A member of the RNA family "RtT RNA" from Candidatus Erwinia dacicola, 118 nucleotides long. Lineage of the source: Bacteria > Pseudomonadati > Enterobacterales > Erwiniaceae > Erwinia. Rfam links the family to the GO term cellular response to amino acid starvation. The match comes from Rfam's covariance-model search (51 bits). It is annotated as a cis-regulatory element. The base pairs follow the family's consensus structure, which is taken from published work.
[Rfam]
RNA sequence: GUCAUCUUCCUGAUGGGAAGGAUGAGAAGGUUUGAGCCGAACGCAGUGAGACCAUGCCACCUGUGGCGUCCGUAGGGCAAGGAGCGCAGCGACGCAGUUAUCCCUUCCCCCACAACCA
Numbered sequence: 001g002u003c004a005u006c007u008u009c010c011u012g013a014u015g016g017g018a019a020g021g022a023u024g025a026g027a028a029g030g031u032u033u034g035a036g037c038c039g040a041a042c043g044c045a046g047u048g049a050g051a052c053c054a055u056g057c058c059a060c061c062u063g064u065g066g067c068g069u070c071c072g073u074a075g076g077g078c079a080a081g082g083a084g085c086g087c088a089g090c091g092a093c094g095c096a097g098u099u100a101u102c103c104c105u106u107c108c109c110c111c112a113c114a115a116c117c118a
Stems, first nucleotide, its partner, number of pairs: 015109007023100001031074001033072002038048002055068005